[Rfam]
RNA sequence: CCGUUCUUGUGUUUUUCGCUGGUUGUCCUACCAAAACCAGGGAUUGUCAAACAGAACGCAAAUUAAUGGCAGCUUUUCACUCCACAAUGUUGAGCCCACUUACCUCGGCUACUGCAUUACUUUCCGGCUCGCCACAUUA
Numbered sequence: 001c002c003g004u005u006c007u008u009g010u011g012u013u014u015u016u017c018g019c020u021g022g023u024u025g026u027c028c029u030a031c032c033a034a035a036a037c038c039a040g041g042g043a044u045u046g047u048c049a050a051a052c053a054g055a056a057c058g059c060a061a062a063u064u065a066a067u068g069g070c071a072g073c074u075u076u077u078c079a080c081u082c083c084a085c086a087a088u089g090u091u092g093a094g095c096c097c098a099c100u101u102a103c104c105u106c107g108g109c110u111a112c113u114g115c116a117u118u119a120c121u122u123u124c125c126g127g128c129u130c131g132c133c134a135c136a137u138u139a
Stems, first nucleotide, its partner, number of pairs: 002058006010049002016043002019040004086118005093110004
RNA: Small nucleolar RNA psi18S-1377
Organism: Drosophila yakuba